[Rfam]
RNA sequence: CGGGGAUCACAAGUUUGAGGCCACAGCAGAAGUGUGCAUGGCACAGCUCUGUCAGAUUCCAAUGGAUCUGAAAAUUUUGCU
Numbered sequence: 001c002g003g004g005g006a007u008c009a010c011a012a013g014u015u016u017g018a019g020g021c022c023a024c025a026g027c028a029g030a031a032g033u034g035u036g037c038a039u040g041g042c043a044c045a046g047c048u049c050u051g052u053c054a055g056a057u058u059c060c061a062a063u064g065g066a067u068c069u070g071a072a073a074a075u076u077u078u079g080c081u
Stems, first nucleotide, its partner, number of pairs: 017049002020047002025081007032044003053070007

Annotation:
Mammalian CPEB3 ribozyme: an 81-nucleotide RNA from Alligator sinensis. A search with the family's covariance model found it, with a score of 48 bits. The source organism's lineage runs through Eukaryota, Gnathostomata, Dipnotetrapodomorpha, Alligatorinae and Alligator. Pairs were carried over by alignment from the consensus structure, which is taken from published work.